[Rfam]
RNA: Actino-pnp RNA
RNA sequence: CGCGGUCUUCGGUAGUGGCUGCCGGAACGAAAGCCGGCAGCUUCGACUGAUGGCCGUC
Numbered sequence: 001c002g003c004g005g006u007c008u009u010c011g012g013u014a015g016u017g018g019c020u021g022c023c024g025g026a027a028c029g030a031a032a033g034c035c036g037g038c039a040g041c042u043u044c045g046a047c048u049g050a051u052g053g054c055c056g057u058c
Stems, first nucleotide, its partner, number of pairs: 002057006009050005017042009